[Rfam]
RNA: Small nucleolar RNA SNORA68
RNA sequence: UCUGCAGCCAAACCCAAAGCUCGCACCUCGCCCGUGGUGUGAAUUAGUCUGGCGUGCAACAGAACCGACCCCUGUCGCCUUUCUCUGCCUGCUGCCGCUGCCUGCCUCUGAAAGUGAAUUCAGGGGUCAACACUG
Numbered sequence: 001u002c003u004g005c006a007g008c009c010a011a012a013c014c015c016a017a018a019g020c021u022c023g024c025a026c027c028u029c030g031c032c033c034g035u036g037g038u039g040u041g042a043a044u045u046a047g048u049c050u051g052g053c054g055u056g057c058a059a060c061a062g063a064a065c066c067g068a069c070c071c072c073u074g075u076c077g078c079c080u081u082u083c084u085c086u087g088c089c090u091g092c093u094g095c096c097g098c099u100g101c102c103u104g105c106c107u108c109u110g111a112a113a114g115u116g117a118a119u120u121c122a123g124g125g126g127u128c129a130a131c132a133c134u135g
Stems, first nucleotide, its partner, number of pairs: 003058004009052001019044001021042007067128007079114005087106001089104001